RNA sequence: AGCGACCGGCCGGACACGUAGGUGACCGGCCCACAAGUGGAGGCUCCGAUCUCCCACCCGACCGAUCCAAGGAUUGGCGGGUCAACGGUCCGGCUGCGCCCCGCGGAGACUUCGCGGCGGUGCUCCAGAUCCUUGUUGGAGCCCCGCCUGUGUCACCGUCCGGGGCAUUUUUC
Numbered sequence: 001a002g003c004g005a006c007c008g009g010c011c012g013g014a015c016a017c018g019u020a021g022g023u024g025a026c027c028g029g030c031c032c033a034c035a036a037g038u039g040g041a042g043g044c045u046c047c048g049a050u051c052u053c054c055c056a057c058c059c060g061a062c063c064g065a066u067c068c069a070a071g072g073a074u075u076g077g078c079g080g081g082u083c084a085a086c087g088g089u090c091c092g093g094c095u096g097c098g099c100c101c102c103g104c105g106g107a108g109a110c111u112u113c114g115c116g117g118c119g120g121u122g123c124u125c126c127a128g129a130u131c132c133u134u135g136u137u138g139g140a141g142c143c144c145c146g147c148c149u150g151u152g153u154c155a156c157c158g159u160c161c162g163g164g165g166c167a168u169u170u171u172u173c
Stems, first nucleotide, its partner, number of pairs: 004090005012027002028083005034060001037057004041052002062077006098166006104158003113152003116148005122142005
The family of this 173-nucleotide RNA sequence from Streptomyces sp. NRRL F-4489 is "Streptomyces RNA 1601". NCBI's taxonomy places the organism under Bacteria, Bacillati, Actinomycetes, Streptomycetaceae, Streptomyces. The family's RNA type in Rfam is small RNA. The match comes from Rfam's covariance-model search (125 bits). Identified by deep sequencing of transcriptome at the end of exponential growth phase. Appears longer on northern blot than sequencing transcript. Streptomyces specific.